[Rfam]
RNA sequence: UUGGGAUGCUAGGGGUGCCGCAAGGCUGAGAAAGAGUGUUCACUCUUAACCCUUUGAACCUGUUGGAUAAUGCCAGUGAAGGGAAGCGUAAGACGAAGGAA
Numbered sequence: 001u002u003g004g005g006a007u008g009c010u011a012g013g014g015g016u017g018c019c020g021c022a023a024g025g026c027u028g029a030g031a032a033a034g035a036g037u038g039u040u041c042a043c044u045c046u047u048a049a050c051c052c053u054u055u056g057a058a059c060c061u062g063u064u065g066g067a068u069a070a071u072g073c074c075a076g077u078g079a080a081g082g083g084a085a086g087c088g089u090a091a092g093a094c095g096a097a098g099g100a101a
Stems, first nucleotide, its partner, number of pairs: 006089005011053004017026003033046005059082003063076004
RNA: TPP riboswitch aptamer (THI element)